[Rfam]
RNA sequence: CGAAGAUCACCGCUCAAUCGCCCGCAUGGGCGAACCGGGGAACCACAGUUUUCGGAGCGAUCCGAAUUGGGGUGAAUCGCGCUCUGGACACCGAUCACGGUGACCAGAUCCGUGUAGGGCCAUUCUUCCGGCCCGAACCCGACAGCUAACUCGGUAGGCGGUAGAGGGAGAAACA
Number, nucleotide and partner (000 for none) at each position: 001c000002g000003a000004a000005g000006a000007u000008c000009a000010c000011c160012g159013c158014u157015c000016a000017a000018u033019c032020g031021c030022c029023c028024g000025c000026a000027u000028g023029g022030g021031c020032g019033a018034a155035c154036c153037g152038g151039g150040g000041a000042a000043c000044c069045a068046c000047a000048g000049u000050u000051u000052u000053c000054g000055g000056a000057g000058c000059g000060a000061u000062c000063c000064g000065a000066a000067u000068u045069g044070g140071g139072g138073u000074g000075a000076a000077u000078c114079g113080c112081g111082c000083u000084c000085u000086g000087g000088a000089c000090a000091c000092c000093g000094a000095u000096c000097a000098c000099g000100g000101u000102g000103a000104c000105c000106a000107g000108a000109u000110c000111c081112g080113u079114g078115u000116a000117g134118g133119g132120c131121c000122a000123u000124u000125c000126u000127u000128c000129c000130g000131g120132c119133c118134c117135g000136a000137a000138c072139c071140c070141g000142a000143c000144a000145g000146c000147u000148a000149a000150c039151u038152c037153g036154g035155u034156a000157g014158g013159c012160g011161g000162u000163a000164g000165a000166g000167g000168g000169a000170g000171a000172a000173a000174c000175a000
RNA: c-di-AMP riboswitch aptamer (ydaO/yuaA leader)